[Rfam]
RNA sequence: AGAUGACGGCCGCGGCAAAGCCUAGCGAGCAGCCGCGAACUGAGCCUUGCGUGACGUCCGGUAACGGCCGUUGCGAAGCGUAGACAGGGAGGUUGUAGGCCGGAAUGAAGUGAACGGGAAAAUAGCCCCGAAAUCGAACGUGAUCGGAGUAGCCGACCCUGUCUCUCAAAGGGGAAGGCGGAAUCGCAACCCGCGUCAUCGCGAGCGGGCUGAGGUGCUCCCGGGGUUCGUACC
Numbered sequence: 001a002g003a004u005g006a007c008g009g010c011c012g013c014g015g016c017a018a019a020g021c022c023u024a025g026c027g028a029g030c031a032g033c034c035g036c037g038a039a040c041u042g043a044g045c046c047u048u049g050c051g052u053g054a055c056g057u058c059c060g061g062u063a064a065c066g067g068c069c070g071u072u073g074c075g076a077a078g079c080g081u082a083g084a085c086a087g088g089g090a091g092g093u094u095g096u097a098g099g100c101c102g103g104a105a106u107g108a109a110g111u112g113a114a115c116g117g118g119a120a121a122a123u124a125g126c127c128c129c130g131a132a133a134u135c136g137a138a139c140g141u142g143a144u145c146g147g148a149g150u151a152g153c154c155g156a157c158c159c160u161g162u163c164u165c166u167c168a169a170a171g172g173g174g175a176a177g178g179c180g181g182a183a184u185c186g187c188a189a190c191c192c193g194c195g196u197c198a199u200c201g202c203g204a205g206c207g208g209g210c211u212g213a214g215g216u217g218c219u220c221c222c223g224g225g226g227u228u229c230g231u232a233c234c
Base pairs, nucleotide, nucleotide: 012036013035014034015033016032020030021029023204025202026201040088041087044085046083047082048080049079050075051074052073053072054071055070056069058067059066060065125227126226127225128224129223130222146221147220148219149218150217151216152179153178154177157173158172159171160170184215185214187212188211190209191208192207193206194205
Dot-bracket structure: ...........(((((...((.[.[[..)).)))))...((..(.(((((((((((.(((....))).)))))))...)).)).).))....................................((((((...............(((((((((..((((.........))))...)))....((.((.(((((......]].]))))).)).)))))))))))))).......
This 234-nucleotide RNA sequence from Mesorhizobium waimense belongs to the Rfam family "Group II catalytic intron D1-D4-6". Pairs were carried over by alignment from the consensus structure. The literature on the family includes a 2001 paper in Trends Genet by Bonen and Vogel, "The ins and outs of group II introns". About the family: Group II introns are found in rRNA, tRNA and mRNA of organelles in fungi, plants and protists, and also in mRNA in bacteria.